Selenocysteine insertion sequence 1: a 68-nucleotide RNA from Astyanax mexicanus.

RNA sequence: CAUGGACUAAUGACGGUCUGUCUGGAAACCCGUCGUACGGAAAGGACAGACCUGAUGCAUUUGGCGUG
Numbered sequence: 001c002a003u004g005g006a007c008u009a010a011u012g013a014c015g016g017u018c019u020g021u022c023u024g025g026a027a028a029c030c031c032g033u034c035g036u037a038c039g040g041a042a043a044g045g046a047c048a049g050a051c052c053u054g055a056u057g058c059a060u061u062u063g064g065c066g067u068g
Stems, first nucleotide, its partner, number of pairs: 001068004015052009030040003